[Rfam]
RNA sequence: AAAUUAUCCAGAGAGACGGAGGGAUCAGGCCCUGUGAAAUCUCAGCAGCAGGCUUUUUAAGUACUGUGCUAAUUCCUGCAGGCAGCGGCUUGAAAGAUAAUCA
Numbered sequence: 001a002a003a004u005u006a007u008c009c010a011g012a013g014a015g016a017c018g019g020a021g022g023g024a025u026c027a028g029g030c031c032c033u034g035u036g037a038a039a040u041c042u043c044a045g046c047a048g049c050a051g052g053c054u055u056u057u058u059a060a061g062u063a064c065u066g067u068g069c070u071a072a073u074u075c076c077u078g079c080a081g082g083c084a085g086c087g088g089c090u091u092g093a094a095a096g097a098u099a100a101u102c103a
Stems, first nucleotide, its partner, number of pairs: 003101006013043004021032003026078004044070004049066002052062004074095001079092005

SAM riboswitch aptamer (S box leader): a 103-nucleotide RNA sequence from Jeotgalicoccus saudimassiliensis. The base pairs follow the family's consensus structure, which is taken from published work. Lineage of the source: Bacteria > Bacilli > Caryophanales > Staphylococcaceae > Jeotgalicoccus. The match comes from Rfam's covariance-model search (74 bits).